A member of the RNA family "mir-67 microRNA precursor family" from Anopheles darlingi, 77 nucleotides long. Rfam 15.1 lists 196 matches to the family in 188 species. It scores 74 bits against the family's covariance model. A reference for the family is Cao et al. (2008), "Identification of conserved microRNAs in Bombyx mori (silkworm) and regulation of fibroin L chain production by microRNAs in heterologous system", Insect Biochem Mol Biol. Pairs were carried over by alignment from the consensus structure, which was predicted with RNAalifold.
[Rfam]
RNA sequence: UCUCUCGAUUACUCACUCAACCUGGGUGUGAUGCUUAUUUGAAUCAUCACAACCUCCUUGAGUGAGCGAUUGCGAUG
Numbered sequence: 001u002c003u004c005u006c007g008a009u010u011a012c013u014c015a016c017u018c019a020a021c022c023u024g025g026g027u028g029u030g031a032u033g034c035u036u037a038u039u040u041g042a043a044u045c046a047u048c049a050c051a052a053c054c055u056c057c058u059u060g061a062g063u064g065a066g067c068g069a070u071u072g073c074g075a076u077g
Base pairs, nucleotide, nucleotide: 009068012066013065014064015063016062017061018060019059020058024054025053027051028050029049030048031047032046033045